[Rfam]
Shown here is a 97-nucleotide RNA sequence, a member of the family "SAM-I/IV (S-adenosyl methionine) riboswitch aptamer".

RNA sequence: UACAGAUAUCAAGAGCAGGAUUAAAUUCCUCUCCAACCUGCCCUCUCUGGCAAGGUGGAAAAAUGAUAUGGCUUUCAGCAACUAAAGGAGGAAAAAU
Numbered sequence: 001u002a003c004a005g006a007u008a009u010c011a012a013g014a015g016c017a018g019g020a021u022u023a024a025a026u027u028c029c030u031c032u033c034c035a036a037c038c039u040g041c042c043c044u045c046u047c048u049g050g051c052a053a054g055g056u057g058g059a060a061a062a063a064u065g066a067u068a069u070g071g072c073u074u075u076c077a078g079c080a081a082c083u084a085a086a087g088g089a090g091g092a093a094a095a096a097u
Stems, first nucleotide, its partner, number of pairs: 006069005015031001017030004032059003037055003040051003044092003048088001071079003